The family of this 125-nucleotide sequence from Brassica oleracea is "MIR9563 microRNA precursor family". Lineage of the source: Eukaryota > Viridiplantae > Euphyllophyta > malvids > Brassica oleracea. Gene Ontology terms of the family: miRNA-mediated post-transcriptional gene silencing and RISC complex. A search with the family's covariance model found it, with a score of 107 bits.
RNA sequence: AUAGUAUAAGAUACGGUUUUUUAGCUUUUAACUAAAAAAAUUAAGAGAUGUCUCUUAAAUAAGAGAUAUAAGAGACGUCUCUUAGCUUUUUUAGUUAAAAGCUAAGAGACCGUAUCUUAUAUUAU
Number, nucleotide and partner (000 for none) at each position: 001a125002u124003a123004g122005u121006a120007u119008a118009a117010g116011a115012u114013a113014c112015g111016g110017u109018u108019u107020u106021u105022u104023a103024g102025c101026u100027u099028u098029u097030a096031a095032c094033u093034a092035a091036a090037a089038a088039a087040a000041u085042u084043a083044a082045g081046a080047g079048a000049u000050g000051u000052c000053u000054c000055u000056u000057a000058a000059a000060u000061a000062a000063g000064a000065g000066a000067u000068a000069u000070a000071a000072g000073a000074g000075a000076c000077g000078u000079c047080u046081c045082u044083u043084a042085g041086c000087u039088u038089u037090u036091u035092u034093a033094g032095u031096u030097a029098a028099a027100a026101g025102c024103u023104a022105a021106g020107a019108g018109a017110c016111c015112g014113u013114a012115u011116c010117u009118u008119a007120u006121a005122u004123u003124a002125u001